[Rfam]
Nucleotides: 287
Base pairs, nucleotide, nucleotide: 001066002065003064004063005062006061010034011033012031013030018025019024035056036055037054038053069273070272071271073269074087075086076085077084090267091266092265093264095262096261097260110185111184114179115178116177117176118175119174120173121172122283124281125280126279187232188231189230190229191228192227193226194225195224199223200222202220203219204218206216208214
Number, partner (000 for none) and nucleotide at each position: 001066g002065u003064c004063a005062a006061c007000a008000a009000c010034c011033c012031c013030u014000a015000a016000g017000c018025c019024c020000u021000u022000c023000g024019g025018g026000a027000c028000u029000u030013a031012g032000g033011g034010g035056c036055u037054u038053u039000u040000c041000a042000u043000c044000u045000u046000a047000g048000g049000a050000u051000u052000u053038g054037a055036a056035g057000c058000c059000c060000a061006g062005u063004u064003g065002a066001c067000c068000a069273g070272g071271u072000u073269a074087a075086g076085u077084g078000u079000u080000c081000a082000a083000u084077c085076a086075c087074u088000c089000u090267g091266u092265u093264a094000g095262g096261g097260a098000c099000g100000a101000a102000u103000a104000u105000u106000a107000u108000a109000g110185g111184c112000a113000c114179u115178c116177c117176g118175u119174g120173a121172u122283g123000c124281u125280u126279c127000a128000g129000a130000g131000g132000a133000a134000a135000a136000a137000g138000u139000u140000u141000u142000u143000g144000c145000g146000c147000g148000c149000a150000a151000a152000a153000a154000c155000a156000u157000u158000u159000u160000c161000c162000u163000c164000u165000g166000a167000a168000a169000c170000c171000a172121g173120u174119u175118g176117c177116g178115g179114a180000c181000u182000c183000u184111g185110c186000g187232g188231c189230a190229a191228a192227u193226c194225a195224u196000u197000a198000a199223a200222c201000a202220g203219g204218c205000a206216u207000a208214a209000g210000g211000g212000u213000u214208u215000a216206a217000a218204g219203c220202c221000a222200g223199u224195g225194u226193g227192a228191u229190u230189u231188g232187u233000u234000u235000a236000g237000g238000u239000a240000g241000c242000u243000u244000g245000c246000u247000a248000c249000u250000u251000a252000u253000a254000a255000a256000c257000c258000g259000u260097u261096c262095u263000a264093u265092a266091a267090c268000c269073u270000u271071a272070c273069c274000g275000a276000g277000g278000u279126g280125a281124a282000u283122u284000u285000a286000a287000c

Background: A member of the RNA family "HNH endonuclease-associated RNA and ORF (HEARO) RNA" from Candidatus Thiomargarita nelsonii, 287 nucleotides long. On this family, see Weinberg et al., Nature 2009: "Exceptional structured noncoding RNAs revealed by bacterial metagenome analysis".